A member of the RNA family "TPP riboswitch aptamer (THI element)" from Paenisporosarcina antarctica, 102 nucleotides long. NCBI's taxonomy places the organism under Bacteria, Bacillati, Bacilli, Caryophanaceae, Paenisporosarcina. It scores 73 bits against the family's covariance model. Gene Ontology term of the family: thiamine pyrophosphate binding. Rfam's curators write: Vitamin B(1) in its active form thiamin pyrophosphate (TPP) is an essential coenzyme that is synthesised by coupling of pyrimidine and thiazole moieties in bacteria.

RNA sequence: UAAACACACUAGGGGAGUCUUUAAAGACUGAGAUGGAGAAAAUCCAGACCCUUUGAACCUGAUCUAAUUAGAACUGGCGUAGGGAAGUGGAAAUGUAAUUAU
Numbered sequence: 001u002a003a004a005c006a007c008a009c010u011a012g013g014g015g016a017g018u019c020u021u022u023a024a025a026g027a028c029u030g031a032g033a034u035g036g037a038g039a040a041a042a043u044c045c046a047g048a049c050c051c052u053u054u055g056a057a058c059c060u061g062a063u064c065u066a067a068u069u070a071g072a073a074c075u076g077g078c079g080u081a082g083g084g085a086a087g088u089g090g091a092a093a094u095g096u097a098a099u100u101a102u
Stems, first nucleotide, its partner, number of pairs: 007089004011052004017028004035045003058083004064077003